[Rfam]
The record is an 82-nucleotide RNA sequence from Caenorhabditis elegans, which matches "SmY spliceosomal RNA" in Rfam. The family's consensus secondary structure is taken from published work. By type it is a spliceosomal small nuclear RNA. It scores 74 bits against the family's covariance model.
RNA sequence: GCAUAUGAUAUAACACUCUCAGGGCCUUACAAAAGACCCAGUGAACUAUUUUUGAAAACCCUGUCCUCUCGAGGUCAGGGUA
Numbered sequence: 001g002c003a004u005a006u007g008a009u010a011u012a013a014c015a016c017u018c019u020c021a022g023g024g025c026c027u028u029a030c031a032a033a034a035g036a037c038c039c040a041g042u043g044a045a046c047u048a049u050u051u052u053u054g055a056a057a058a059c060c061c062u063g064u065c066c067u068c069u070c071g072a073g074g075u076c077a078g079g080g081u082a
Stems, first nucleotide, its partner, number of pairs: 022039003026035003058081006065074003